Notes
A member of the RNA family "MIR2617 microRNA precursor family" from Medicago truncatula, 88 nucleotides long. Lineage of the source: Eukaryota > Streptophyta > Tracheophyta > Papilionoideae > Medicago. The family has 3 seed sequences and 1,174 matches in Rfam 15.1. Pairs were carried over by alignment from the consensus structure, which was predicted with RNAalifold. Rfam links the family to the GO terms miRNA-mediated post-transcriptional gene silencing and RISC complex.

RNA sequence: UUGUAGUGUGACAUGCCCGUUUGAGUUUUACUCUGAUGUUGAACAAUUAUUAUUUAAUUGAUUUUGGGAAACGGGGUGUUACAAUUGG
Numbered sequence: 001u002u003g004u005a006g007u008g009u010g011a012c013a014u015g016c017c018c019g020u021u022u023g024a025g026u027u028u029u030a031c032u033c034u035g036a037u038g039u040u041g042a043a044c045a046a047u048u049a050u051u052a053u054u055u056a057a058u059u060g061a062u063u064u065u066g067g068g069a070a071a072c073g074g075g076g077u078g079u080u081a082c083a084a085u086u087g088g
Stems, first nucleotide, its partner, number of pairs: 002088001005085001007083008016075006